[Rfam]
RNA sequence: GUUUCAUUUGGAGUUCCCUCAAAAAGCACUUCAGAUUCUAUAAGAGUCCCUUAUUUGUUAAGGGUACCGAUAGUCUCACUGAAGUGUUUGGGGAAACUCUAAGUGUCAU
Dot-bracket structure: ....(((((.(((((.((((.(((..((((((((............................................))))))))))))))).))))).)))))....
Numbered sequence: 001g002u003u004u005c006a007u008u009u010g011g012a013g014u015u016c017c018c019u020c021a022a023a024a025a026g027c028a029c030u031u032c033a034g035a036u037u038c039u040a041u042a043a044g045a046g047u048c049c050c051u052u053a054u055u056u057g058u059u060a061a062g063g064g065u066a067c068c069g070a071u072a073g074u075c076u077c078a079c080u081g082a083a084g085u086g087u088u089u090g091g092g093g094a095a096a097c098u099c100u101a102a103g104u105g106u107c108a109u
Stems, first nucleotide, its partner, number of pairs: 005105005011099005017093004022089003027086008

Description
Shown here is a 109-nucleotide sequence from Olea europaea, a member of the family "mir-395 microRNA precursor family". Rfam 15.1 lists 2,798 matches to the family in 234 species. Its family is annotated with RISC complex and miRNA-mediated post-transcriptional gene silencing in the Gene Ontology. Rfam describes the family as follows. mir-395 was identified in both Arabidopsis thaliana and Oryza sativa computationally and was later experimentally verified. mir-395 is thought to target mRNAs coding for ATP sulphurylases. The mature sequence is excised from the 3' arm of the hairpin.